Shown here is a 53-nucleotide RNA from Pseudorhodoferax sp. Leaf267, a member of the family "nhaA-I RNA". Acidobacteria, Alphaproteobacteria, Betaproteobacteria and Gammaproteobacteria, Verrucomicrobia, cand. division NC10. A search with the family's covariance model found it, with a score of 50 bits. The family's RNA type in Rfam is riboswitch.
RNA sequence: GGGUGGCGUGCCAUGUCGGCGGGUCAGGUUCAUGCGAAGGUCGGGCCGCCUCG
Numbered sequence: 001g002g003g004u005g006g007c008g009u010g011c012c013a014u015g016u017c018g019g020c021g022g023g024u025c026a027g028g029u030u031c032a033u034g035c036g037a038a039g040g041u042c043g044g045g046c047c048g049c050c051u052c053g
Stems, first nucleotide, its partner, number of pairs: 005025003009021004035053003039050003